[Rfam]
RNA sequence: AUCUUAUAAGUUGCAGCCUGAAUUAGGCUGAUGGCUGGUGGCCAAAAGCUACCAGCCU
Number, nucleotide and partner (000 for none) at each position: 001a000002u000003c000004u000005u000006a000007u000008a000009a000010g000011u000012u000013g000014c030015a029016g028017c027018c026019u000020g000021a000022a000023u000024u000025a000026g018027g017028c016029u015030g014031a000032u000033g057034g056035c055036u054037g053038g052039u051040g050041g049042c048043c000044a000045a000046a000047a000048g042049c041050u040051a039052c038053c037054a036055g035056c034057c033058u000
The record is a 58-nucleotide RNA from Candidatus Moranella endobia, which matches "Pseudomonas sRNA P26" in Rfam. By type it is a non-coding RNA gene. This small RNA (sRNA) was computationally identified in the genome of the opportunistic pathogen Pseudomonas aeruginosa and its expression verified by northern blot analysis. P26 is conserved across many Gammaproteobacteria species and appears to be consistently located between the DNA directed RNA polymerase (beta subunit) and 50S ribosomal protein L7/L12 genes. A search with the family's covariance model found it, with a score of 46 bits. The source organism's lineage runs through Bacteria, Pseudomonadati, Pseudomonadota, Enterobacterales and Candidatus Moranella endobia.